The family of this 75-nucleotide RNA sequence from Bacteroidales bacterium WCE2004 is "tRNA". The source organism's lineage runs through Bacteria, Pseudomonadati, Bacteroidota, Bacteroidia and Bacteroidales. It scores 64 bits against the family's covariance model. Rfam classes the family as a transfer RNA. Rfam's curators write: Transfer RNA (tRNA) molecules are approximately 80 nucleotides in length.
[Rfam]
RNA sequence: GGUCCCUUAGCUCAGUUGGUUAGCAGCAGCUGACUCAUAAUCAGCGGGUCGCAGGUUCAAGUCCUGCAGGGACCA
Numbered sequence: 001g002g003u004c005c006c007u008u009a010g011c012u013c014a015g016u017u018g019g020u021u022a023g024c025a026g027c028a029g030c031u032g033a034c035u036c037a038u039a040a041u042c043a044g045c046g047g048g049u050c051g052c053a054g055g056u057u058c059a060a061g062u063c064c065u066g067c068a069g070g071g072a073c074c075a
Stems, first nucleotide, its partner, number of pairs: 001074007010027003029045005051067005